The record is a 98-nucleotide RNA sequence from Desulforamulus reducens, which matches "SAM riboswitch aptamer (S box leader)" in Rfam.
RNA sequence: UGCUCAUCAAGAGAGGUGGAGGGACUGGCCCGAUGAAACCCGGCAACCUCACGUAAGGUGCCAAGUCCUGCGGGAAGAAUAUUCCUGACAGAUGAGGU
Numbered sequence: 001u002g003c004u005c006a007u008c009a010a011g012a013g014a015g016g017u018g019g020a021g022g023g024a025c026u027g028g029c030c031c032g033a034u035g036a037a038a039c040c041c042g043g044c045a046a047c048c049u050c051a052c053g054u055a056a057g058g059u060g061c062c063a064a065g066u067c068c069u070g071c072g073g074g075a076a077g078a079a080u081a082u083u084c085c086u087g088a089c090a091g092a093u094g095a096g097g098u
Base pairs, nucleotide, nucleotide: 003096004095005094006093007092008091013041015040016039017038021031022030023029025070027068028067042062043061044060045059047058048057066090071087072086073085074084075083076082

Rfam links the family to the GO term regulation of gene expression.